[Rfam]
Record summary: The family of this 79-nucleotide RNA sequence from Propionispira arboris is "ZMP/ZTP riboswitch aptamer (pfl RNA motif)".
RNA sequence: AAGUUGUUAUACGACUGACGGAAGUGGAAAUGACCACAUGAAGUAUAGCAAAAAAGAGCCGACCGUCUGGGCAAAAAAG
Number, nucleotide and partner (000 for none) at each position: 001a000002a000003g000004u051005u050006g049007u048008u047009a046010u045011a044012c043013g000014a000015c040016u000017g067018a066019c065020g064021g063022a000023a000024g037025u036026g035027g034028a000029a000030a000031u000032g000033a000034c027035c026036a025037c024038a000039u000040g015041a000042a000043g012044u011045a010046u009047a008048g007049c006050a005051a004052a000053a000054a000055a000056g000057a000058g072059c071060c070061g000062a000063c021064c020065g019066u018067c017068u000069g000070g060071g059072c058073a000074a000075a000076a000077a000078a000079g000